[Rfam]
This 69-nucleotide RNA from Menidia menidia belongs to the Rfam family "mir-24 microRNA precursor family". Gene Ontology terms of the family: miRNA-mediated post-transcriptional gene silencing and RISC complex. The family's consensus secondary structure was predicted with RNAalifold. Rfam describes the family as follows. This family represents the microRNA (miRNA) mir-24 family. miRNAs are transcribed as ~70nt precursors (modelled here) and subsequently processed by the Dicer enzyme to give a ~22nt product. In this case the mature sequence comes from the 3' arm of the precursor. The extents of the hairpin precursors are not generally known and are estimated based on hairpin prediction. The products are thought to have regulatory roles through complementarity to mRNA. The involvement of Dicer in miRNA processing suggests a relationship with the phenomenon of RNA interference. miRNAs are numbered based on the sequence of the mature RNA. miR-24 has been identified in human and mouse. On this family, see Ambros, Cell 2001: "microRNAs: tiny regulators with great potential". Lineage of the source: Eukaryota > Eumetazoa > Bilateria > Euteleosteomorpha > Menidia.
RNA sequence: UCCUCCUGUGCCUUCUGAGCUGACAGCAGUUUGAUCAAAAACACUGGCUCAGUUCAGCAGAAACAAGGG
Dot-bracket structure: ..(((..((..((.(((((((((...((((............))))..))))))))).))..))..)))